RNA sequence: GUAUGUGAAAGUGUUGAAUAGAAGGCUUACUUGGAAUGGUUAUAAGCAUUAAAAACAAAGACUGAAAACAUAU
Dot-bracket structure: ((((((...(((.........((.(((....(((.....)))..))).))..........)))....))))))
Numbered sequence: 001g002u003a004u005g006u007g008a009a010a011g012u013g014u015u016g017a018a019u020a021g022a023a024g025g026c027u028u029a030c031u032u033g034g035a036a037u038g039g040u041u042a043u044a045a046g047c048a049u050u051a052a053a054a055a056c057a058a059a060g061a062c063u064g065a066a067a068a069c070a071u072a073u
Stems, first nucleotide, its partner, number of pairs: 001073006010063003022050002025047003032042003